[Rfam]
RNA sequence: GGUGGCAAAUGAUGUGAAAACAAUCUUAUCCUACACACUGAAUCUUUGAUGUGUGGACAAACAUCUCCGCUUAUUAUCUGAUGCCACU
Numbered sequence: 001g002g003u004g005g006c007a008a009a010u011g012a013u014g015u016g017a018a019a020a021c022a023a024u025c026u027u028a029u030c031c032u033a034c035a036c037a038c039u040g041a042a043u044c045u046u047u048g049a050u051g052u053g054u055g056g057a058c059a060a061a062c063a064u065c066u067c068c069g070c071u072u073a074u075u076a077u078c079u080g081a082u083g084c085c086a087c088u
Base pairs, nucleotide, nucleotide: 003086004085005084006083007082
RNA: Small nucleolar RNA R16